This 120-nucleotide RNA sequence from Trifolium subterraneum belongs to the Rfam family "Small nucleolar RNA snoR111". Its family is annotated with RNA processing and nucleolus in the Gene Ontology. A search with the family's covariance model found it, with a score of 100 bits. Rfam 15.1 lists 533 matches to the family in 223 species. A reference for the family is Marker et al. (2002), "Experimental RNomics: identification of 140 candidates for small non-messenger RNAs in the plant Arabidopsis thaliana", Curr Biol.
[Rfam]
RNA sequence: AUGAAUGAUGAAGAGACUAAACUGUCUCUGCCAUUGUUUUAACGUUGAGGUAUAACAACGCCGAGUCAUCGUUUCAUUCGUCAUUUUUCCAUUGGCGAAUCGAUUGUUUCUCGUCUACAU
Numbered sequence: 001a002u003g004a005a006u007g008a009u010g011a012a013g014a015g016a017c018u019a020a021a022c023u024g025u026c027u028c029u030g031c032c033a034u035u036g037u038u039u040u041a042a043c044g045u046u047g048a049g050g051u052a053u054a055a056c057a058a059c060g061c062c063g064a065g066u067c068a069u070c071g072u073u074u075c076a077u078u079c080g081u082c083a084u085u086u087u088u089c090c091a092u093u094g095g096c097g098a099a100u101c102g103a104u105u106g107u108u109u110c111u112c113g114u115c116u117a118c119a120u
Base pairs, nucleotide, nucleotide: 006036007035008034009033010032013028014027015026016025017024060115062113063112064111065110068104069103070102071101077099078098079097080096081095082094083093085091